[Rfam]
RNA sequence: AUGUAGAUUUGCCAAACUUACUGUGAAGUAAGGACGGAAAGCCACGGGUCUUUGUCAUCAAAUAAAGAUAGCCGGGUUGCGUAG
Number, nucleotide and partner (000 for none) at each position: 001a000002u000003g000004u000005a000006g000007a000008u000009u000010u000011g000012c037013c036014a000015a000016a000017c032018u031019u030020a029021c028022u027023g000024u000025g000026a000027a022028g021029u020030a019031a018032g017033g000034a000035c000036g013037g012038a000039a000040a078041g077042c076043c075044a000045c074046g073047g072048g069049u068050c067051u062052u061053u060054g059055u000056c000057a000058u000059c054060a053061a052062a051063u000064a000065a000066a000067g050068a049069u048070a000071g000072c047073c046074g045075g043076g042077u041078u040079g000080c000081g000082u000083a000084g000
RNA: c-di-GMP-I riboswitch aptamer